RNA sequence: ACAACUUUUAAUUAAAUCCAGAGAGAUUUAAAAAGUUGUUAAUGUAACGUGAUAGUUAUCGCUACACGUUUACCUCUUUGCAACUUUUUGCAAAGAGGUUUUUUUU
Numbered sequence: 001a002c003a004a005c006u007u008u009u010a011a012u013u014a015a016a017u018c019c020a021g022a023g024a025g026a027u028u029u030a031a032a033a034a035g036u037u038g039u040u041a042a043u044g045u046a047a048c049g050u051g052a053u054a055g056u057u058a059u060c061g062c063u064a065c066a067c068g069u070u071u072a073c074c075u076c077u078u079u080g081c082a083a084c085u086u087u088u089u090g091c092a093a094a095g096a097g098g099u100u101u102u103u104u105u106u
Base pairs, nucleotide, nucleotide: 003037004036005035006034007033008032013030014029015028016027017026018025044067045066049062050061051060052059053058072099073098074097075096076095077094078093079092080091081090082089083088
PyrR binding site: a 106-nucleotide RNA sequence from Oceanobacillus bengalensis. About the family: This family represents the PyrR binding site and terminator structure. This RNA structure is found upstream of a variety of genes involved in pyrimidine biosynthesis and transport. The alignment also includes a portion of the antiterminator structure. Taxonomically the source falls in Oceanobacillus (Bacteria, Bacillati, Bacillota, Bacilli).